The record is a 74-nucleotide RNA, which matches "L13-Bacteroidia ribosomal protein leader" in Rfam. It is one of the family's seed sequences.
[Rfam]
RNA sequence: UGUGGCUCAUUUGCAGCCACACUCGCGUGUUAAUAGCCGGGUUUCAUUGGCCGAAACACGGUGGUUAGUGAAUC
Numbered sequence: 001u002g003u004g005g006c007u008c009a010u011u012u013g014c015a016g017c018c019a020c021a022c023u024c025g026c027g028u029g030u031u032a033a034u035a036g037c038c039g040g041g042u043u044u045c046a047u048u049g050g051c052c053g054a055a056a057c058a059c060g061g062u063g064g065u066u067a068g069u070g071a072a073u074c
Base pairs, nucleotide, nucleotide: 001021002020003019004018005017006016030068031067032066033065034064036062037061038060039059041057042056043055044054
Dot-bracket structure: ((((((.........))))))........(((((.((((.((((.........)))).)))).)))))......
Pairs were carried over by alignment from the consensus structure, which is taken from published work.
By type it is a cis-regulatory leader.